[Rfam]
RNA sequence: UGGCUGUGAUGACUCUUAGGACACCUUUGAUAUAAACUUGAAACCAAAUUAAAGUAAAGCCUGAGCUGC
Numbered sequence: 001u002g003g004c005u006g007u008g009a010u011g012a013c014u015c016u017u018a019g020g021a022c023a024c025c026u027u028u029g030a031u032a033u034a035a036a037c038u039u040g041a042a043a044c045c046a047a048a049u050u051a052a053a054g055u056a057a058a059g060c061c062u063g064a065g066c067u068g069c
Base pairs, nucleotide, nucleotide: 001068002067003066004065
RNA: Small nucleolar RNA SNORD58